This 117-nucleotide sequence from Metabacillus harenarius belongs to the Rfam family "RNA Staph. aureus E (RoxS)". It is annotated as a small RNA. It was shown to be regulated by the presence of nitric oxide (NO). In Bacillus subtilis it controls expression of genes with functions related to oxidative stress and oxidation-reduction reactions and it was renamed RoxS (for related to oxidative stress). The family's consensus secondary structure is taken from published work.
[Rfam]
RNA sequence: GUGAAAUUAAUCACAAACAAACAUUUACCCCUUUGUUUGACCGUGAAAAAUUUCUCCCAUCCCCUUUGUUGUCGUUAAGACAUAAAAAAACCCUGUACAUUUGUAUAGGGUUUUUUA
Numbered sequence: 001g002u003g004a005a006a007u008u009a010a011u012c013a014c015a016a017a018c019a020a021a022c023a024u025u026u027a028c029c030c031c032u033u034u035g036u037u038u039g040a041c042c043g044u045g046a047a048a049a050a051u052u053u054c055u056c057c058c059a060u061c062c063c064c065u066u067u068g069u070u071g072u073c074g075u076u077a078a079g080a081c082a083u084a085a086a087a088a089a090a091c092c093c094u095g096u097a098c099a100u101u102u103g104u105a106u107a108g109g110g111u112u113u114u115u116u117a
Base pairs, nucleotide, nucleotide: 003054004053005052006051007050008049011046012045013044014043018039019038020037021036022035023034070082073079087114088113089112090111091110092109093108094107095106096105097104

It scores 114 bits against the family's covariance model. On this family, see Geissmann et al., Nucleic Acids Res 2009: "A search for small noncoding RNAs in Staphylococcus aureus reveals a conserved sequence motif for regulation".